[Rfam]
RNA sequence: GGGGGCGUACUGGCUUCGACGUGGGUGCUGAAGCAUAAGGAGCAUACCGGGGCGGAUGAGGACCUCGUUAAAAACGUCCACUUUGUAAUUGGCAACGAUUACGCACUUGCAGCUUAAUUAAGCAGCACGAUCAACCUUGUGGUGGUUCCGCACUUGGAUUGAUCGUCAUUUAGGGACCUCGGCGUGUUGGGUUUUCUCCAGCAGACAUGCUUAAAUUUACUGGGGGAGAGGUCUUAGGGAUUUUGUCUGUGGAAGCCCGAGGACCAAUCUAAAACACUGACUAAGUAUGUAGCGCCUUAUCGUGGAUCAUUUGCGGACGGGGGUUCAAUUCCCCCCGCCUCCACCA
Numbered sequence: 001g002g003g004g005g006c007g008u009a010c011u012g013g014c015u016u017c018g019a020c021g022u023g024g025g026u027g028c029u030g031a032a033g034c035a036u037a038a039g040g041a042g043c044a045u046a047c048c049g050g051g052g053c054g055g056a057u058g059a060g061g062a063c064c065u066c067g068u069u070a071a072a073a074a075c076g077u078c079c080a081c082u083u084u085g086u087a088a089u090u091g092g093c094a095a096c097g098a099u100u101a102c103g104c105a106c107u108u109g110c111a112g113c114u115u116a117a118u119u120a121a122g123c124a125g126c127a128c129g130a131u132c133a134a135c136c137u138u139g140u141g142g143u144g145g146u147u148c149c150g151c152a153c154u155u156g157g158a159u160u161g162a163u164c165g166u167c168a169u170u171u172a173g174g175g176a177c178c179u180c181g182g183c184g185u186g187u188u189g190g191g192u193u194u195u196c197u198c199c200a201g202c203a204g205a206c207a208u209g210c211u212u213a214a215a216u217u218u219a220c221u222g223g224g225g226g227a228g229a230g231g232u233c234u235u236a237g238g239g240a241u242u243u244u245g246u247c248u249g250u251g252g253a254a255g256c257c258c259g260a261g262g263a264c265c266a267a268u269c270u271a272a273a274a275c276a277c278u279g280a281c282u283a284a285g286u287a288u289g290u291a292g293c294g295c296c297u298u299a300u301c302g303u304g305g306a307u308c309a310u311u312u313g314c315g316g317a318c319g320g321g322g323g324u325u326c327a328a329u330u331c332c333c334c335c336c337g338c339c340u341c342c343a344c345c346a
Base pairs, nucleotide, nucleotide: 001342002341003340004339005338006337007336020315021314022313023312024311025310026309027308029306033303034302037298038297039296040295042293043289044288045287046286047285048067049066050065051064052063054079055078056077057076058075106122107121108120109119127166128165129164130163131162132161135157136156139153140152141151144178145177146176147175148174149173179213181211182210183209184208185207186206187205194227195226196225197224198223199222230265231264232263233262234261238258239257241254242253243252245281246280247279249277250276251275319335320334321333322332323331